Shown here is a 67-nucleotide RNA sequence from Salinigranum rubrum, a member of the family "S15-Halobacteria ribosomal protein leader". The family's RNA type in Rfam is cis-regulatory leader. Pairs were carried over by alignment from the consensus structure, which is taken from published work. Lineage of the source: Archaea > Methanobacteriati > Halobacteria > Halobacteriales > Salinigranum.
RNA sequence: AGGGAACCAGCACGGCCGCAAAUCUGACUCGCCCGAGGGUUUUCGGGCUUCGAGAUUGCGGAAGUGC
Numbered sequence: 001a002g003g004g005a006a007c008c009a010g011c012a013c014g015g016c017c018g019c020a021a022a023u024c025u026g027a028c029u030c031g032c033c034c035g036a037g038g039g040u041u042u043u044c045g046g047g048c049u050u051c052g053a054g055a056u057u058g059c060g061g062a063a064g065u066g067c
Stems, first nucleotide, its partner, number of pairs: 010067004016061006024054002031048007